[Rfam]
RNA sequence: CCAGCCGGCCGGACGGCCGCGUCAUCCGCAAGGAUGCCGAGGAAAGUCCGGGCUCCACGGAUACACGGUGCCGGAUAACGUCCGGCGGGGGCGACCCCAGGGAAAGUGCCACAGAAAUCAGACCGCCGCGGGUCCGCCCGCGGCAAGGGUGAAACGGUGCGGUAAGAGCGCACCGCGCUUCCGGUAACGGCGGCGGCACGGUAAACCCCACCGGGAGCAAAGUCGUAUAGGGGCGGCACGGCCAUCGGUUCGCCGAUGCCAGGUCCUGUUUCCGGAUCGCCGCCCGGGUUGACUGCUAGAGGCGCCGGGUAAUCGGCGUCCCAGAGGAAUGGUCGUCACGCGGGAGCAAUCCCGCCUUACAGAACCCGGCUUACAGGCCGGCUGGCACU
Numbered sequence: 001c002c003a004g005c006c007g008g009c010c011g012g013a014c015g016g017c018c019g020c021g022u023c024a025u026c027c028g029c030a031a032g033g034a035u036g037c038c039g040a041g042g043a044a045a046g047u048c049c050g051g052g053c054u055c056c057a058c059g060g061a062u063a064c065a066c067g068g069u070g071c072c073g074g075a076u077a078a079c080g081u082c083c084g085g086c087g088g089g090g091g092c093g094a095c096c097c098c099a100g101g102g103a104a105a106g107u108g109c110c111a112c113a114g115a116a117a118u119c120a121g122a123c124c125g126c127c128g129c130g131g132g133u134c135c136g137c138c139c140g141c142g143g144c145a146a147g148g149g150u151g152a153a154a155c156g157g158u159g160c161g162g163u164a165a166g167a168g169c170g171c172a173c174c175g176c177g178c179u180u181c182c183g184g185u186a187a188c189g190g191c192g193g194c195g196g197c198a199c200g201g202u203a204a205a206c207c208c209c210a211c212c213g214g215g216a217g218c219a220a221a222g223u224c225g226u227a228u229a230g231g232g233g234c235g236g237c238a239c240g241g242c243c244a245u246c247g248g249u250u251c252g253c254c255g256a257u258g259c260c261a262g263g264u265c266c267u268g269u270u271u272c273c274g275g276a277u278c279g280c281c282g283c284c285c286g287g288g289u290u291g292a293c294u295g296c297u298a299g300a301g302g303c304g305c306c307g308g309g310u311a312a313u314c315g316g317c318g319u320c321c322c323a324g325a326g327g328a329a330u331g332g333u334c335g336u337c338a339c340g341c342g343g344g345a346g347c348a349a350u351c352c353c354g355c356c357u358u359a360c361a362g363a364a365c366c367c368g369g370c371u372u373a374c375a376g377g378c379c380g381g382c383u384g385g386c387a388c389u
Base pairs, nucleotide, nucleotide: 001385002384003383004382005381006380007379008378009377010376011374012337013336014335015334016333017332018331020039021038023036024035025034026033027032044372045371046370048369049368050367051366052365053217054216055215056214061271063269064268066213067212068211069210070209071085072084073083074082075081086100087098088097089096090095101208102207106206107205108202109201110200123148124147125144126143127142128141129140130139131138132137156174157173158172159171160170161169175197176195177194178193179192181190182189183188221294222293223292224291231285232284233283234282235281236280262278263277264276265275266274301320302319303318304317305316306315307314308313
The record is a 389-nucleotide sequence from Starkeya sp. ORNL1, which matches "Bacterial RNase P class A" in Rfam.
NCBI's taxonomy places the organism under Bacteria, Pseudomonadati, Hyphomicrobiales, Xanthobacteraceae, Starkeya.
Ribonuclease P (RNase P) is a ubiquitous endoribonuclease, found in archaea, bacteria and eukarya as well as chloroplasts and mitochondria. Its best characterised activity is the generation of mature 5'-ends of tRNAs by cleaving the 5'-leader elements of precursor-tRNAs.
Rfam classes the family as a ribozyme.